[Rfam]
RNA sequence: AAUCCGGUUGAUCCUGCCGGAGGCGACCGCUAUUGGAGUUCGAUUAAGCCAUGCGAGUCUAGAGGCUUAGGCCUCGGCGUACCGCUCAGUAACACGUGGAUAACCUGCCCUGUUCAGGGGGAUAACCUCGCGAAAGUGAGAAUAAUACCCCAUAGUUCACCAUGCCUGGAACGGUUGGUGGAUGAAAGCUCAGGCGGAACAGGAUGGGUCUGCGGCGUAUCAGGUAGUAGGGGGUGUAAUGGACCUCCUAGCCCUCGACGCGUACGGGUUGUGGGAGCAAUCGCCCGGAGAUGGAUUCUGAGACACGAAUCCAGACCCUACGGGGUGCAGCAGGCGCGAAAACUUGACAAUGCGAGAAAUCGUGAUCAGGGAACUCCAAUUGUCCCCGUUUUACGGGGUUCUGAAUUGACUCUAAACAGGUCGAGUAAUAGGGGCGGGAAAUAUCGGUGCCAGCCGCCGCGGUAAUACCGAAGCCCCAAGUGGUCGUCGUUCUUAUUG
Numbered sequence: 001a002a003u004c005c006g007g008u009u010g011a012u013c014c015u016g017c018c019g020g021a022g023g024c025g026a027c028c029g030c031u032a033u034u035g036g037a038g039u040u041c042g043a044u045u046a047a048g049c050c051a052u053g054c055g056a057g058u059c060u061a062g063a064g065g066c067u068u069a070g071g072c073c074u075c076g077g078c079g080u081a082c083c084g085c086u087c088a089g090u091a092a093c094a095c096g097u098g099g100a101u102a103a104c105c106u107g108c109c110c111u112g113u114u115c116a117g118g119g120g121g122a123u124a125a126c127c128u129c130g131c132g133a134a135a136g137u138g139a140g141a142a143u144a145a146u147a148c149c150c151c152a153u154a155g156u157u158c159a160c161c162a163u164g165c166c167u168g169g170a171a172c173g174g175u176u177g178g179u180g181g182a183u184g185a186a187a188g189c190u191c192a193g194g195c196g197g198a199a200c201a202g203g204a205u206g207g208g209u210c211u212g213c214g215g216c217g218u219a220u221c222a223g224g225u226a227g228u229a230g231g232g233g234g235u236g237u238a239a240u241g242g243a244c245c246u247c248c249u250a251g252c253c254c255u256c257g258a259c260g261c262g263u264a265c266g267g268g269u270u271g272u273g274g275g276a277g278c279a280a281u282c283g284c285c286c287g288g289a290g291a292u293g294g295a296u297u298c299u300g301a302g303a304c305a306c307g308a309a310u311c312c313a314g315a316c317c318c319u320a321c322g323g324g325g326u327g328c329a330g331c332a333g334g335c336g337c338g339a340a341a342a343c344u345u346g347a348c349a350a351u352g353c354g355a356g357a358a359a360u361c362g363u364g365a366u367c368a369g370g371g372a373a374c375u376c377c378a379a380u381u382g383u384c385c386c387c388g389u390u391u392u393a394c395g396g397g398g399u400u401c402u403g404a405a406u407u408g409a410c411u412c413u414a415a416a417c418a419g420g421u422c423g424a425g426u427a428a429u430a431g432g433g434g435c436g437g438g439a440a441a442u443a444u445c446g447g448u449g450c451c452a453g454c455c456g457c458c459g460c461g462g463u464a465a466u467a468c469c470g471a472a473g474c475c476c477c478a479a480g481u482g483g484u485c486g487u488c489g490u491u492c493u494u495a496u497u498g
Stems, first nucleotide, its partner, number of pairs: 004020005022488010033379009042337001048335003052332003057078003062075005085290003095214007104207002109203007117151004127140005156182007165174002188195002216262003223253003228250008265287004269280004292313006315326004343369001345368003351364005382400001384398006404429001406424006431477005444471004453460002

The family of this 498-nucleotide part of an RNA from uncultured marine group II euryarchaeote KM3-136-D10 is "Archaeal small subunit ribosomal RNA". The organism belongs to Candidatus Poseidoniales, within Archaea. Gene Ontology terms of the family: ribosome and structural constituent of ribosome. On this family, see Yusupov et al., Science 2001: "Crystal structure of the ribosome at 5.5 A resolution".